[Rfam]
RNA sequence: AGAGUUUAGAGGGUUAUAGAGAAACCGGUCAGAUUAGGUUUUUAAUCUAAUCUGACCGAUAGCUUUAAUAGUGAGGUAAGCUUUAGUAUAGCACUCCUAAUUCAUAACGCUACACUCGUGCAUAAUUUAUUUUUAAUUUGUGCACGAGCGUUAGUAAAUUAUUUACUUUUUGAAAUAAAAUUUGGCAUCACUUUAAUAUUGAGACUUAGUAAACCUCAGUAGGUCUGCCAGUUGGGCCCAUAAGAAUUAUU
Numbered sequence: 001a002g003a004g005u006u007u008a009g010a011g012g013g014u015u016a017u018a019g020a021g022a023a024a025c026c027g028g029u030c031a032g033a034u035u036a037g038g039u040u041u042u043u044a045a046u047c048u049a050a051u052c053u054g055a056c057c058g059a060u061a062g063c064u065u066u067a068a069u070a071g072u073g074a075g076g077u078a079a080g081c082u083u084u085a086g087u088a089u090a091g092c093a094c095u096c097c098u099a100a101u102u103c104a105u106a107a108c109g110c111u112a113c114a115c116u117c118g119u120g121c122a123u124a125a126u127u128u129a130u131u132u133u134u135a136a137u138u139u140g141u142g143c144a145c146g147a148g149c150g151u152u153a154g155u156a157a158a159u160u161a162u163u164u165a166c167u168u169u170u171u172g173a174a175a176u177a178a179a180a181u182u183u184g185g186c187a188u189c190a191c192u193u194u195a196a197u198a199u200u201g202a203g204a205c206u207u208a209g210u211a212a213a214c215c216u217c218a219g220u221a222g223g224u225c226u227g228c229c230a231g232u233u234g235g236g237c238c239c240a241u242a243a244g245a246a247u248u249a250u251u
Stems, first nucleotide, its partner, number of pairs: 003248005010241001011239005017067005026058015074098003080092003109155004113150001115148011127136003159178006182231006190224003197221007